[Rfam]
RNA sequence: AUACUCAUGUAAUCGCUGCAUGAUUCAUGUAGAGGAAAGUCCAUGCUCACACAAACUGAGAUGUUUGUAGUGUUCGUGCUUGAUGAAUUCAUAAGUCAAGGUAACUAUUUUGGUUAACGGCAGGUGAAGUUCCUAAGUCAUACGAUAUGGAAUUAUAUCCUUGAAAGUGCCACAGUGACGUAGCUAAAGUGGAAACACUUUAGGUGGAACGCGGUAAACCCCACGAGUGAGCAACCCAAAUAAUGGUAGGGGCAUCCUUUAGUAGGGAAAUGAACCGAACGAGGGACAGGUUACUGCCUGUAGAUAGAUGAUUACACCCUGUGUACGAGGCCGACCACCGUUAGUAGUACAAAUGGGACAGAACAUGGCUUAUCGAG
Numbered sequence: 001a002u003a004c005u006c007a008u009g010u011a012a013u014c015g016c017u018g019c020a021u022g023a024u025u026c027a028u029g030u031a032g033a034g035g036a037a038a039g040u041c042c043a044u045g046c047u048c049a050c051a052c053a054a055a056c057u058g059a060g061a062u063g064u065u066u067g068u069a070g071u072g073u074u075c076g077u078g079c080u081u082g083a084u085g086a087a088u089u090c091a092u093a094a095g096u097c098a099a100g101g102u103a104a105c106u107a108u109u110u111u112g113g114u115u116a117a118c119g120g121c122a123g124g125u126g127a128a129g130u131u132c133c134u135a136a137g138u139c140a141u142a143c144g145a146u147a148u149g150g151a152a153u154u155a156u157a158u159c160c161u162u163g164a165a166a167g168u169g170c171c172a173c174a175g176u177g178a179c180g181u182a183g184c185u186a187a188a189g190u191g192g193a194a195a196c197a198c199u200u201u202a203g204g205u206g207g208a209a210c211g212c213g214g215u216a217a218a219c220c221c222c223a224c225g226a227g228u229g230a231g232c233a234a235c236c237c238a239a240a241u242a243a244u245g246g247u248a249g250g251g252g253c254a255u256c257c258u259u260u261a262g263u264a265g266g267g268a269a270a271u272g273a274a275c276c277g278a279a280c281g282a283g284g285g286a287c288a289g290g291u292u293a294c295u296g297c298c299u300g301u302a303g304a305u306a307g308a309u310g311a312u313u314a315c316a317c318c319c320u321g322u323g324u325a326c327g328a329g330g331c332c333g334a335c336c337a338c339c340g341u342u343a344g345u346a347g348u349a350c351a352a353a354u355g356g357g358a359c360a361g362a363a364c365a366u367g368g369c370u371u372a373u374c375g376a377g
Base pairs, nucleotide, nucleotide: 004377005376006375007373008316009315010314011313012312013311014310016032017031018030019029020028021027037371038370039369041368042367043366044365045364046231047230048229049228050227051068052067053066054065055064056063074226075225076224077223078222079100080099081098082097083096084095101118102116103115104114105113106112107111119221120220122161123160124159130152131151132150133149137146138145139144167219168218169215170214171213184203185202186201187200188199189198190197191196235251236250237249255285256284257283258282259281286301287300288299289298290297291296318355320353322351323350324349325348326347
Rfam assigns this 377-nucleotide RNA sequence from Ornithinibacillus bavariensis to the family "Bacterial RNase P class B".
The family is grouped with related families in Rfam's "RNaseP clan".
On this family, see Frank and Pace, Annu Rev Biochem 1998: "Ribonuclease P: unity and diversity in a tRNA processing ribozyme".
From the family's description: Ribonuclease P (RNase P) is a ubiquitous endoribonuclease, found in archaea, bacteria and eukarya as well as chloroplasts and mitochondria.
The family's RNA type in Rfam is ribozyme.
It scores 322 bits against the family's covariance model.